[Rfam]
RNA sequence: AAUAAGAGGAUAACAAAUUAAAUUUUCUUCCAAUUUCCAGUUUUUUUCUCCUAAAAAAAUUUAAAUUCAACUAAAAAUACUAAAAGUUGAGAGUAAAAAUUUGAUUUGUCAUUCUCUCGUU
Numbered sequence: 001a002a003u004a005a006g007a008g009g010a011u012a013a014c015a016a017a018u019u020a021a022a023u024u025u026u027c028u029u030c031c032a033a034u035u036u037c038c039a040g041u042u043u044u045u046u047u048c049u050c051c052u053a054a055a056a057a058a059a060u061u062u063a064a065a066u067u068c069a070a071c072u073a074a075a076a077a078u079a080c081u082a083a084a085a086g087u088u089g090a091g092a093g094u095a096a097a098a099a100u101u102u103g104a105u106u107u108g109u110c111a112u113u114c115u116c117u118c119g120u121u
Stems, first nucleotide, its partner, number of pairs: 001121003005117007013109010023098004027093003031089006039081002043077004
Rfam assigns this 121-nucleotide RNA sequence from Gossypium gossypioides to the family "MIR7504 microRNA precursor family". Rfam 15.1 lists 7,343 matches to the family in 61 species. Rfam links the family to the GO terms RISC complex and miRNA-mediated post-transcriptional gene silencing. The family's consensus secondary structure was predicted with RNAalifold.